The family of this 74-nucleotide sequence from Jaculus jaculus is "mir-3473 microRNA precursor family". A search with the family's covariance model found it, with a score of 76 bits. Gene Ontology terms of the family: cellular response to mechanical stimulus, miRNA-mediated post-transcriptional gene silencing and RISC complex.
RNA sequence: ACCGCUAAGCCAUCUCUCCAGCCCAAAAUAUUUUUUAAAUAGUGGAAGUAGGGCUGGAGAGAUGGCUUAGUGGC
Numbered sequence: 001a002c003c004g005c006u007a008a009g010c011c012a013u014c015u016c017u018c019c020a021g022c023c024c025a026a027a028a029u030a031u032u033u034u035u036u037a038a039a040u041a042g043u044g045g046a047a048g049u050a051g052g053g054c055u056g057g058a059g060a061g062a063u064g065g066c067u068u069a070g071u072g073g074c
Stems, first nucleotide, its partner, number of pairs: 002073023
Dot-bracket structure: .(((((((((((((((((((((((..........................))))))))))))))))))))))).